Rfam assigns this 92-nucleotide RNA sequence from Neotoma lepida to the family "Small nucleolar SNORD12/SNORD106". Its family is annotated with nucleolus and RNA processing in the Gene Ontology. On this family, see Huttenhofer et al., EMBO J 2001: "RNomics: an experimental approach that identifies 201 candidates for novel, small, non-messenger RNAs in mouse".
RNA sequence: GCUGGUGUAAAUGAUGACUUCACUUUUUUCCCCGUCAUAUCGACAAUGCUGAACUCUCAAAAUAUUUUGCCAGUUAGUCCUGAUACGCCAGC
Numbered sequence: 001g002c003u004g005g006u007g008u009a010a011a012u013g014a015u016g017a018c019u020u021c022a023c024u025u026u027u028u029u030c031c032c033c034g035u036c037a038u039a040u041c042g043a044c045a046a047u048g049c050u051g052a053a054c055u056c057u058c059a060a061a062a063u064a065u066u067u068u069g070c071c072a073g074u075u076a077g078u079c080c081u082g083a084u085a086c087g088c089c090a091g092c
Base pairs, nucleotide, nucleotide: 001092002091003090004089005088006087007086008085009084
Dot-bracket structure: (((((((((..........................................................................)))))))))
Source information: It is annotated as a C/D-box small nucleolar RNA. Taxonomically the source falls in Neotoma (Eukaryota, Eumetazoa, Eutheria, Glires).